[Rfam]
RNA sequence: GCAACCGUGGUCUAACGGUUAGGAUUCAACCCUUCCAAGGUUGAGGCAGGGGUUCGACUCCCCUCGGUUGCA
Numbered sequence: 001g002c003a004a005c006c007g008u009g010g011u012c013u014a015a016c017g018g019u020u021a022g023g024a025u026u027c028a029a030c031c032c033u034u035c036c037a038a039g040g041u042u043g044a045g046g047c048a049g050g051g052g053u054u055c056g057a058c059u060c061c062c063c064u065c066g067g068u069u070g071c072a
Stems, first nucleotide, its partner, number of pairs: 001071007010025004027043005048064005

About this RNA: The record is a 72-nucleotide sequence from Coniochaeta ligniaria, which matches "tRNA" in Rfam. The family's RNA type in Rfam is transfer RNA. About the family: Transfer RNA (tRNA) molecules are approximately 80 nucleotides in length. Their secondary structure includes four short double-helical elements and three loops (D, anti-codon, and T loops). Further hydrogen bonds mediate the characteristic L-shaped molecular structure. tRNAs have two regions of fundamental functional importance: the anti-codon, which is responsible for specific mRNA codon recognition, and the 3' end, to which the tRNAs corresponding amino acid is attached (by aminoacyl-tRNA synthetases). tRNAs cope with the degeneracy of the genetic code in two manners: having more than one tRNA (with a specific anti-codon) for a particular amino acid; and 'wobble' base-pairing, i.e. permitting non-standard base-pairing at the 3rd anti-codon position. Taxonomically the source falls in Coniochaeta ligniaria (Eukaryota, Fungi, leotiomyceta, Sordariomycetes). It scores 66 bits against the family's covariance model. The base pairs follow the family's consensus structure, which is taken from published work.